The family of this 131-nucleotide RNA sequence from Jaculus jaculus is "Small nucleolar RNA SNORA33". Rfam classes the family as an H/ACA-box small nucleolar RNA. Pairs were carried over by alignment from the consensus structure, which was predicted with PFOLD. Rfam's curators write: ACA33 is a member of the H/ACA class of snoRNA that guide the sites of modification of uridines to pseudouridines. A search with the family's covariance model found it, with a score of 112 bits.

RNA sequence: UAGUAAACCAAUUAAUCUGCUUAGCUGAAUGCGUUUCUGCAGAAAUUUAGAAACAGGUGGCAAUAGUGAUGCCAUUUUAUGAGCCUUAAGGACAACUGACGUCAUUAUGGUCCCACAAAAUGGCUACAAUA
Numbered sequence: 001u002a003g004u005a006a007a008c009c010a011a012u013u014a015a016u017c018u019g020c021u022u023a024g025c026u027g028a029a030u031g032c033g034u035u036u037c038u039g040c041a042g043a044a045a046u047u048u049a050g051a052a053a054c055a056g057g058u059g060g061c062a063a064u065a066g067u068g069a070u071g072c073c074a075u076u077u078u079a080u081g082a083g084c085c086u087u088a089a090g091g092a093c094a095a096c097u098g099a100c101g102u103c104a105u106u107a108u109g110g111u112c113c114c115a116c117a118a119a120a121u122g123g124c125u126a127c128a129a130u131a
Base pairs, nucleotide, nucleotide: 003061004060006058016043017042018041019040020039071124072123073122074121083111084110085109087107088106089105091103092102093101